The record is a 141-nucleotide RNA sequence from Naegleria gruberi, which matches "U4 spliceosomal RNA" in Rfam. The source organism's lineage runs through Eukaryota, Discoba, Eutetramitea, Naegleriidae and Naegleria. Rfam describes the family as follows. U4 small nuclear RNA (U4 snRNA) is a component of the major U2-dependent spliceosome. The family has 177 seed sequences and 32,178 matches in Rfam 15.1.

RNA sequence: GUUCUUGUCCAGGGAUUUUACGUUGUUCUUGAUCGUCACUGUGAAACACGUAAUUGCUGAUUGCGAUCUGCCCUUUUCUACCCGUUUUCUUGCUUCGAAAGAGUUUGAGAAAACAAUUUUUGAACUCUGAAAGCACUUCAG
Numbered sequence: 001g002u003u004c005u006u007g008u009c010c011a012g013g014g015a016u017u018u019u020a021c022g023u024u025g026u027u028c029u030u031g032a033u034c035g036u037c038a039c040u041g042u043g044a045a046a047c048a049c050g051u052a053a054u055u056g057c058u059g060a061u062u063g064c065g066a067u068c069u070g071c072c073c074u075u076u077u078c079u080a081c082c083c084g085u086u087u088u089c090u091u092g093c094u095u096c097g098a099a100a101g102a103g104u105u106u107g108a109g110a111a112a113a114c115a116a117u118u119u120u121u122g123a124a125c126u127c128u129g130a131a132a133g134c135a136c137u138u139c140a141g
Base pairs, nucleotide, nucleotide: 021050022049023048025047026046027045034041035040084114085113086112087111088110089109090108091107092106095102096101127141128140129139130138